[Rfam]
RNA sequence: CAACAAUCGAAAGGAGGUGAUCCAGUGUCUCAUUGUCAUAGCCCGCGGUCUGAGGGUGAUACGGCCUGGAUGCUCGCCUCUGGUGAGGUCUAGGGCGCAUCAACGCCCAUUAGCGGUCCUCUUGAGACCGCGGCCGACAAUGGAAGGGCUGCCCCACGCGGGGCGGCCCU
Numbered sequence: 001c002a003a004c005a006a007u008c009g010a011a012a013g014g015a016g017g018u019g020a021u022c023c024a025g026u027g028u029c030u031c032a033u034u035g036u037c038a039u040a041g042c043c044c045g046c047g048g049u050c051u052g053a054g055g056g057u058g059a060u061a062c063g064g065c066c067u068g069g070a071u072g073c074u075c076g077c078c079u080c081u082g083g084u085g086a087g088g089u090c091u092a093g094g095g096c097g098c099a100u101c102a103a104c105g106c107c108c109a110u111u112a113g114c115g116g117u118c119c120u121c122u123u124g125a126g127a128c129c130g131c132g133g134c135c136g137a138c139a140a141u142g143g144a145a146g147g148g149c150u151g152c153c154c155c156a157c158g159c160g161g162g163g164c165g166g167c168c169c170u
Stems, first nucleotide, its partner, number of pairs: 016023002031142007044069001047066004071093001095131003098126001100125003105119001106116002145170011